[Rfam]
RNA: Plastid-ycf3 group II-D1 intron
RNA sequence: AUUCCUUUUGUCGUGUAUCCUUGAUUGAUGCAGCUUUAGAUGCUUCA
Numbered sequence: 001a002u003u004c005c006u007u008u009u010g011u012c013g014u015g016u017a018u019c020c021u022u023g024a025u026u027g028a029u030g031c032a033g034c035u036u037u038a039g040a041u042g043c044u045u046c047a
Stems, first nucleotide, its partner, number of pairs: 010025004032044003